[Rfam]
RNA sequence: AGAGUUCACAAGUUUGAGGCUACAGCAGAAGUGCUCAUGGUAUGGCCCUACCAGAUUCCAACAAAUCUGUGAAUUCUGCU
Numbered sequence: 001a002g003a004g005u006u007c008a009c010a011a012g013u014u015u016g017a018g019g020c021u022a023c024a025g026c027a028g029a030a031g032u033g034c035u036c037a038u039g040g041u042a043u044g045g046c047c048c049u050a051c052c053a054g055a056u057u058c059c060a061a062c063a064a065a066u067c068u069g070u071g072a073a074u075u076c077u078g079c080u
Base pairs, nucleotide, nucleotide: 016048018047019046020045021044024080025079026078027077028076029075030074031043032042033041052069053068054067055066056065057064
Rfam assigns this 80-nucleotide sequence from Crocodylus porosus to the family "Mammalian CPEB3 ribozyme". NCBI's taxonomy places the organism under Eukaryota, Opisthokonta, Metazoa, Gnathostomata, Crocodylus. About the family: The mammalian CPEB3 ribozyme is a self cleaving RNA located in the second intron of the CPEB3 gene which belongs to a family of genes regulating messenger RNA polyadenylation.